Record summary:
Rfam assigns this 158-nucleotide RNA from Microcebus murinus to the family "U1 spliceosomal RNA". Rfam classes the family as a spliceosomal small nuclear RNA. U1 is a small nuclear RNA (snRNA) component of the spliceosome (involved in pre-mRNA splicing). Its 5' end forms complementary base pairs with the 5' splice junction, thus defining the 5' donor site of an intron. There are significant differences in sequence and secondary structure between metazoan and yeast U1 snRNAs, the latter being much longer (568 nucleotides as compared to 164 nucleotides in human). Nevertheless, secondary structure predictions suggest that all U1 snRNAs share a 'common core' consisting of helices I, II, the proximal region of III, and IV. This family does not contain the larger yeast sequences. NCBI's taxonomy places the organism under Eukaryota, Metazoa, Euarchontoglires, Primates, Microcebus. Pairs were carried over by alignment from the consensus structure, which is taken from published work. Rfam 15.1 lists 40,184 matches to the family in 1,499 species.
RNA sequence: AAACAGUAAAAGGGGAGAUACCAUGAUCAUGAAGGUUUUCCCAGAGUGAGGCUUACCUAUUGCACUCCGGAUAUGCUGACCCCUGAGAUUUCCCCAAACGUGAGAAACUUGACUGUAUAAUUUGUGGUAGUGGAGGACUGCAUAUAUGUUUUCCCCUG
Numbered sequence: 001a002a003a004c005a006g007u008a009a010a011a012g013g014g015g016a017g018a019u020a021c022c023a024u025g026a027u028c029a030u031g032a033a034g035g036u037u038u039u040c041c042c043a044g045a046g047u048g049a050g051g052c053u054u055a056c057c058u059a060u061u062g063c064a065c066u067c068c069g070g071a072u073a074u075g076c077u078g079a080c081c082c083c084u085g086a087g088a089u090u091u092c093c094c095c096a097a098a099c100g101u102g103a104g105a106a107a108c109u110u111g112a113c114u115g116u117a118u119a120a121u122u123u124g125u126g127g128u129a130g131u132g133g134a135g136g137a138c139u140g141c142a143u144a145u146a147u148g149u150u151u152u153c154c155c156c157u158g
Base pairs, nucleotide, nucleotide: 009116011114012113013042014041015040016039017038018037020036021035043084044083046081048080050077051076052075054073055072057070058069087110088109089107090106091105094102132157133156135154136153137152140149141148142147